Small nucleolar RNA ACA64: a 128-nucleotide sequence from Bucco capensis. On this family, see Schattner et al., RNA 2006: "A computational screen for mammalian pseudouridylation guide H/ACA RNAs". By type it is an H/ACA-box small nucleolar RNA. Gene Ontology terms of the family: nucleolus and RNA processing.

RNA sequence: GCAAAUAGAUACCAUUUACUUCUUCAUAUAUGUAAUACCUGGUGUGAUAGCUGUGCCGACAGCAGAGGGAGCAUUAAACUCAUUGCCCACGGUAAAGUGUGGGGAGUGAUACCCAUGUUCCUAGAAUC
Numbered sequence: 001g002c003a004a005a006u007a008g009a010u011a012c013c014a015u016u017u018a019c020u021u022c023u024u025c026a027u028a029u030a031u032g033u034a035a036u037a038c039c040u041g042g043u044g045u046g047a048u049a050g051c052u053g054u055g056c057c058g059a060c061a062g063c064a065g066a067g068g069g070a071g072c073a074u075u076a077a078a079c080u081c082a083u084u085g086c087c088c089a090c091g092g093u094a095a096a097g098u099g100u101g102g103g104g105a106g107u108g109a110u111a112c113c114c115a116u117g118u119u120c121c122u123a124g125a126a127u128c
Base pairs, nucleotide, nucleotide: 001051002050003048009045010044011043012042017037018036020034068121070119071118072117073116074115080109081108082107083106084105088101089100090099